[Rfam]
RNA: Small Cajal body-specific RNA 7
Organism: Jaculus jaculus
RNA sequence: UGGAAAUGAUGUAGUAGAGAUAGUUGGGUUUUAAUUGUUGUAUGAGUGGAAAAUUUUAAUAUGUAUGCUGAGUAAUUCUAUUUUAAUGUUUGAUUGUGAAUUCAGUUUGUGUGUAUGUAUAUGCAUGUGUGCUUUUGGCAGCUAUCGAAAGGGGGCACUGUUUGGUGAUGCUGAUAAUGGCGUGCAUCUGAGGCUGUUGUAGAAAUAACCUGGGUUGUUGAAUACAAUGUAGCCAGUGAUUAUAACCCAAGGGAAAAAAAGAGAGAAAAAAUACUUUGUUGAUUGAUUUCAUUUCGGCAUUUCUAAAAUAUUCCAA
Numbered sequence: 001u002g003g004a005a006a007u008g009a010u011g012u013a014g015u016a017g018a019g020a021u022a023g024u025u026g027g028g029u030u031u032u033a034a035u036u037g038u039u040g041u042a043u044g045a046g047u048g049g050a051a052a053a054u055u056u057u058a059a060u061a062u063g064u065a066u067g068c069u070g071a072g073u074a075a076u077u078c079u080a081u082u083u084u085a086a087u088g089u090u091u092g093a094u095u096g097u098g099a100a101u102u103c104a105g106u107u108u109g110u111g112u113g114u115a116u117g118u119a120u121a122u123g124c125a126u127g128u129g130u131g132c133u134u135u136u137g138g139c140a141g142c143u144a145u146c147g148a149a150a151g152g153g154g155g156c157a158c159u160g161u162u163u164g165g166u167g168a169u170g171c172u173g174a175u176a177a178u179g180g181c182g183u184g185c186a187u188c189u190g191a192g193g194c195u196g197u198u199g200u201a202g203a204a205a206u207a208a209c210c211u212g213g214g215u216u217g218u219u220g221a222a223u224a225c226a227a228u229g230u231a232g233c234c235a236g237u238g239a240u241u242a243u244a245a246c247c248c249a250a251g252g253g254a255a256a257a258a259a260a261g262a263g264a265g266a267a268a269a270a271a272u273a274c275u276u277u278g279u280u281g282a283u284u285g286a287u288u289u290c291a292u293u294u295c296g297g298c299a300u301u302u303c304u305a306a307a308a309u310a311u312u313c314c315a316a
Base pairs, nucleotide, nucleotide: 001315002314003313004312195229196228197227198226199225200224201223204219205218206217207216208215209214